Rfam assigns this 67-nucleotide sequence from Mizuhopecten yessoensis to the family "mir-33 microRNA precursor family".
Pairs were carried over by alignment from the consensus structure, which was predicted with PFOLD.
A search with the family's covariance model found it, with a score of 69 bits.
For this family Rfam cites "Direct sequencing and expression analysis of a large number of miRNAs in Aedes aegypti and a multi-species survey of novel mosquito miRNAs" (Li et al., BMC Genomics, 2009).
Rfam 15.1 lists 1,467 matches to the family in 815 species.
Rfam links the family to the GO terms gene silencing by miRNA and RISC complex.
[Rfam]
RNA sequence: CUGUGGUGCAUUGUAGUUGCAUUGCAUUAAAAUAUGAAGUUGCAGUGCUUCUGCAGUGCAAUCACAG
Numbered sequence: 001c002u003g004u005g006g007u008g009c010a011u012u013g014u015a016g017u018u019g020c021a022u023u024g025c026a027u028u029a030a031a032a033u034a035u036g037a038a039g040u041u042g043c044a045g046u047g048c049u050u051c052u053g054c055a056g057u058g059c060a061a062u063c064a065c066a067g
Stems, first nucleotide, its partner, number of pairs: 001067004006063001007060010019048001021046006